[Rfam]
RNA sequence: GGUUCCGGUCGUGACUGGCGCAGGUGGGGUGAACCACCGGGGAGCGGCCGAGGUUCGCGUCGAGGUACGCCGCCCGCCUGGGCGUCCCGG
Numbered sequence: 001g002g003u004u005c006c007g008g009u010c011g012u013g014a015c016u017g018g019c020g021c022a023g024g025u026g027g028g029g030u031g032a033a034c035c036a037c038c039g040g041g042g043a044g045c046g047g048c049c050g051a052g053g054u055u056c057g058c059g060u061c062g063a064g065g066u067a068c069g070c071c072g073c074c075c076g077c078c079u080g081g082g083c084g085u086c087c088c089g090g
Stems, first nucleotide, its partner, number of pairs: 003053002006050007015041002017078004024037004067085005
A member of the RNA family "ZMP/ZTP riboswitch aptamer (pfl RNA motif)" from Sanguibacter sp. HDW7, 90 nucleotides long.